[Rfam]
RNA sequence: UGACGAAAAUAGCAAACUUAUACGAAAGUUAAGGACGCAAAGCCACGGGUCUAACUGUCUAAGACACAGGAUCGCCGGGUUACCGAA
Dot-bracket structure: ...........((...((((.((....))))))...))..((((.((((((....((((...))))...)))..)))))))......
Record summary:
c-di-GMP-I riboswitch aptamer: an 87-nucleotide RNA from Planococcus rifietoensis. It scores 75 bits against the family's covariance model. Lineage of the source: Bacteria > Bacillota > Bacilli > Caryophanaceae > Planococcus.